[Rfam]
RNA sequence: AGCCAUGUGAUGAGCACAAAGCGAACUAUUCUUUCGCCUUUUACUAAAGAAUACCGUGUGUUCUUCAUAUCAGGAUGGCGUACUCUUAUUUUUGGAGAGGUGUUUUUUUGGAAUGCCU
Numbered sequence: 001a002g003c004c005a006u007g008u009g010a011u012g013a014g015c016a017c018a019a020a021g022c023g024a025a026c027u028a029u030u031c032u033u034u035c036g037c038c039u040u041u042u043a044c045u046a047a048a049g050a051a052u053a054c055c056g057u058g059u060g061u062u063c064u065u066c067a068u069a070u071c072a073g074g075a076u077g078g079c080g081u082a083c084u085c086u087u088a089u090u091u092u093u094g095g096a097g098a099g100g101u102g103u104u105u106u107u108u109u110g111g112a113a114u115g116c117c118u
Stems, first nucleotide, its partner, number of pairs: 003078004008067003012063007027053008096118001099117006
The family of this 118-nucleotide sequence from Lactuca saligna is "U5 spliceosomal RNA". Rfam 15.1 lists 28,527 matches to the family in 2,489 species. From the family's description: U5 RNA is a component of both types of known spliceosome. By type it is a spliceosomal small nuclear RNA. Pairs were carried over by alignment from the consensus structure, which is taken from published work.